[Rfam]
RNA sequence: GGAUGUGAUGACAAUCUGGCAGCAACAUCUGCUAUGCCAUUUAUCACUAGGGCUGAUUGGGCUGAUCUGGCUGGCUAGAUGAGUGUCCCCUUCCUCUCUCACCGCCCUAUGACUGCCUUCCUGAAGCUGCAUGCUCAAAGAGAAUGACCUUCCCCAAUACAGAUAGGGUCAUUCCUUCAGUCAAGGGUAUAUGGCAGCUGUGCUCCCCUGCUAGAGCCUCCAAACAAGCUCAAGGUGCAUUUGUAGGAGAAGGUAGGGCAGUCAAGCUUCACAGAUUGCAGACACAUCCAAGUGAGGCCCUGCAUGGGGCAGUCUGCCAUUGUGU
Numbered sequence: 001g002g003a004u005g006u007g008a009u010g011a012c013a014a015u016c017u018g019g020c021a022g023c024a025a026c027a028u029c030u031g032c033u034a035u036g037c038c039a040u041u042u043a044u045c046a047c048u049a050g051g052g053c054u055g056a057u058u059g060g061g062c063u064g065a066u067c068u069g070g071c072u073g074g075c076u077a078g079a080u081g082a083g084u085g086u087c088c089c090c091u092u093c094c095u096c097u098c099u100c101a102c103c104g105c106c107c108u109a110u111g112a113c114u115g116c117c118u119u120c121c122u123g124a125a126g127c128u129g130c131a132u133g134c135u136c137a138a139a140g141a142g143a144a145u146g147a148c149c150u151u152c153c154c155c156a157a158u159a160c161a162g163a164u165a166g167g168g169u170c171a172u173u174c175c176u177u178c179a180g181u182c183a184a185g186g187g188u189a190u191a192u193g194g195c196a197g198c199u200g201u202g203c204u205c206c207c208c209u210g211c212u213a214g215a216g217c218c219u220c221c222a223a224a225c226a227a228g229c230u231c232a233a234g235g236u237g238c239a240u241u242u243g244u245a246g247g248a249g250a251a252g253g254u255a256g257g258g259c260a261g262u263c264a265a266g267c268u269u270c271a272c273a274g275a276u277u278g279c280a281g282a283c284a285c286a287u288c289c290a291a292g293u294g295a296g297g298c299c300c301u302g303c304a305u306g307g308g309g310c311a312g313u314c315u316g317c318c319a320u321u322g323u324g325u
Stems, first nucleotide, its partner, number of pairs: 001108002005102004010097001014092001018090002025086004030081002033078001035074001037070003043066003047061002116168002118165001122137003126134002142153001144151001197267003203261002206258006218249004224244005290325001292323001294320001296318003300312004

The record is a 325-nucleotide RNA from Semnornis frantzii, which matches "7SK RNA" in Rfam. The match comes from Rfam's covariance-model search (204 bits). The source organism's lineage runs through Eukaryota, Tetrapoda, Telluraves, Ramphastidae and Semnornis. Pairs were carried over by alignment from the consensus structure, which is taken from published work.